[Rfam]
RNA sequence: CGGCUCCCAGGGCUAGUCCCAUCCACGUGGUCCUGACCCGCCUUCUGGGAGCGACAGCAACGAGACUGGAUUGGGGGCUCCUACCCCAGUGGAUGCAGGUGACCACGGUUGCCAGUACAACA
Dot-bracket structure: ..((((((..(((..(((....((....))....)))..)))....))))))............(((((.(((..(((.((((.((....)).)..))).).)).)))...)))))......
RNA: Small Cajal body specific RNA 23
Organism: Myotis davidii